The family of this 94-nucleotide sequence from Cellulomonas sp. WB94 is "ZMP/ZTP riboswitch aptamer (pfl RNA motif)".
RNA sequence: GGCCCCGGCCGUGACUGGCGUACCUGAGGUGGACUGAACCACCGGGGAGCGGCCGCAGCAUUGCGCCGUCGCACCGUUCGCCUGGGUGCUCGGG
Numbered sequence: 001g002g003c004c005c006c007g008g009c010c011g012u013g014a015c016u017g018g019c020g021u022a023c024c025u026g027a028g029g030u031g032g033a034c035u036g037a038a039c040c041a042c043c044g045g046g047g048a049g050c051g052g053c054c055g056c057a058g059c060a061u062u063g064c065g066c067c068g069u070c071g072c073a074c075c076g077u078u079c080g081c082c083u084g085g086g087u088g089c090u091c092g093g094g
Stems, first nucleotide, its partner, number of pairs: 003058001006055007015046002017082004029042004071089005
The family's consensus secondary structure is taken from published work. The source organism's lineage runs through Bacteria, Bacillati, Actinomycetota, Micrococcales and Cellulomonas.